[Rfam]
RNA sequence: ACCCUCUGGCAAUGGGCAAGAAGACACCUGAUUGGUGGUGUUGCUCUUAUAUCAAUCAGAGGCAAAGCAGAUGUACAGUCCUUAGUUCAUCCUAGCUUGAUACUGUGAUGGCCAGAGCUGUUUCAUACCUGAGGCACAUAA
Numbered sequence: 001a002c003c004c005u006c007u008g009g010c011a012a013u014g015g016g017c018a019a020g021a022a023g024a025c026a027c028c029u030g031a032u033u034g035g036u037g038g039u040g041u042u043g044c045u046c047u048u049a050u051a052u053c054a055a056u057c058a059g060a061g062g063c064a065a066a067g068c069a070g071a072u073g074u075a076c077a078g079u080c081c082u083u084a085g086u087u088c089a090u091c092c093u094a095g096c097u098u099g100a101u102a103c104u105g106u107g108a109u110g111g112c113c114a115g116a117g118c119u120g121u122u123u124c125a126u127a128c129c130u131g132a133g134g135c136a137c138a139u140a141a
Base pairs, nucleotide, nucleotide: 003062004061005060006059007058008057013054014053015052019048020047023042024041025040026039027038028037085135086134087133099129101127104125105124108121109120110119111118112117
RNA: Small nucleolar RNA SNORA48
Organism: Pipistrellus kuhlii